[Rfam]
This 72-nucleotide RNA sequence from Tepidiforma thermophila belongs to the Rfam family "tRNA". About the family: Transfer RNA (tRNA) molecules are approximately 80 nucleotides in length. Their secondary structure includes four short double-helical elements and three loops (D, anti-codon, and T loops). NCBI's taxonomy places the organism under Bacteria, Bacillati, Chloroflexota, Tepidiformia, Tepidiforma.
RNA sequence: GCCCCCGUAGCUCAGCGGAUAGAGUGUCGGCCUCCGGAGCCGAAGGCGCAGGUUCGAUUCCUGCCGGGGGUA
Numbered sequence: 001g002c003c004c005c006c007g008u009a010g011c012u013c014a015g016c017g018g019a020u021a022g023a024g025u026g027u028c029g030g031c032c033u034c035c036g037g038a039g040c041c042g043a044a045g046g047c048g049c050a051g052g053u054u055c056g057a058u059u060c061c062u063g064c065c066g067g068g069g070g071u072a
Stems, first nucleotide, its partner, number of pairs: 001071007010025004027043005048064005